The family of this 131-nucleotide RNA from Erinaceus europaeus is "Small nucleolar RNA SNORA17".
Pairs were carried over by alignment from the consensus structure, which was predicted with RNAalifold.
From the family's description: snoRNA ACA 17 belongs to the H/ACA family of snoRNAs and is predicted to guide pseudouridylation of the 28S rRNA at positions U4659 and U4598. It shares the same host gene together with ACA43. NB This family has a high threshold value to exclude a large number of closely related sequences that do not appear to have conserved H and ACA boxes, and may be pseudogenes.
A reference for the family is Ofengand and Bakin (1997), "Mapping to nucleotide resolution of pseudouridine residues in large subunit ribosomal RNAs from representative eukaryotes, prokaryotes, archaebacteria, mitochondria and chloroplasts", J Mol Biol.
The family has 53 seed sequences and 5,784 matches in Rfam 15.1.
Rfam classes the family as an H/ACA-box small nucleolar RNA.

RNA sequence: CCUGCCCCUAGAGGCGUUACAGAUGUGACUGCUGUGUCACAUGUGUGUCAAUAGGUGGCAGAGAGAAGAGAGGCUUGUCUACGUCCAGUGCUCUGACCUGUGAGCCACUGGGUGAUUGAUAGUCUGACACU
Numbered sequence: 001c002c003u004g005c006c007c008c009u010a011g012a013g014g015c016g017u018u019a020c021a022g023a024u025g026u027g028a029c030u031g032c033u034g035u036g037u038c039a040c041a042u043g044u045g046u047g048u049c050a051a052u053a054g055g056u057g058g059c060a061g062a063g064a065g066a067a068g069a070g071a072g073g074c075u076u077g078u079c080u081a082c083g084u085c086c087a088g089u090g091c092u093c094u095g096a097c098c099u100g101u102g103a104g105c106c107a108c109u110g111g112g113u114g115a116u117u118g119a120u121a122g123u124c125u126g127a128c129a130c131u
Stems, first nucleotide, its partner, number of pairs: 002061005007055004013049003019046003024041006068128001071125005076119001082114002085111004090105004